[Rfam]
RNA sequence: GUUGAAAAAUGCCAAACUUUUUGUGAAGCAGGGACGGAAAACCAUGGGUCUUGCUGAGAAGAUCGCCAGGUUGCCAAU
Numbered sequence: 001g002u003u004g005a006a007a008a009a010u011g012c013c014a015a016a017c018u019u020u021u022u023g024u025g026a027a028g029c030a031g032g033g034a035c036g037g038a039a040a041a042c043c044a045u046g047g048g049u050c051u052u053g054c055u056g057a058g059a060a061g062a063u064c065g066c067c068a069g070g071u072u073g074c075c076a077a078u
Stems, first nucleotide, its partner, number of pairs: 012037002017032003021028002040072004045068003048063005